[Rfam]
RNA sequence: GUUUAGCAUCAAGAACGCUUAUGCGUACCAACCGACACGCUCGUUGCACGGUGGUUUAGAAUGCGGGGCUCCUCCCAAAAAAACGAGAAAUC
Numbered sequence: 001g002u003u004u005a006g007c008a009u010c011a012a013g014a015a016c017g018c019u020u021a022u023g024c025g026u027a028c029c030a031a032c033c034g035a036c037a038c039g040c041u042c043g044u045u046g047c048a049c050g051g052u053g054g055u056u057u058a059g060a061a062u063g064c065g066g067g068g069c070u071c072c073u074c075c076c077a078a079a080a081a082a083a084c085g086a087g088a089a090a091u092c
Base pairs, nucleotide, nucleotide: 006064007063008062009061015026016025017024018023027055028054029053032051033050034049036046037045040087041086042085043084066076067075068074
RNA: SAM-I/IV (S-adenosyl methionine) riboswitch aptamer